[Rfam]
RNA sequence: ACUGGUACAGUCAUGAUUUUACCUUUAUGCCGUUUACCCAGCUGAAUGUUUCUUUGAUUGAAGUUUUGAAGUCUGAGAUGCCAGU
Numbered sequence: 001a002c003u004g005g006u007a008c009a010g011u012c013a014u015g016a017u018u019u020u021a022c023c024u025u026u027a028u029g030c031c032g033u034u035u036a037c038c039c040a041g042c043u044g045a046a047u048g049u050u051u052c053u054u055u056g057a058u059u060g061a062a063g064u065u066u067u068g069a070a071g072u073c074u075g076a077g078a079u080g081c082c083a084g085u
Base pairs, nucleotide, nucleotide: 001085002084003083004082005081006080007079
The family of this 85-nucleotide RNA sequence from Ornithorhynchus anatinus is "Small nucleolar RNA SNORD87". On this family, see Huttenhofer et al., EMBO J 2001: "RNomics: an experimental approach that identifies 201 candidates for novel, small, non-messenger RNAs in mouse". The organism belongs to Ornithorhynchus, within Eukaryota. It is annotated as a C/D-box small nucleolar RNA.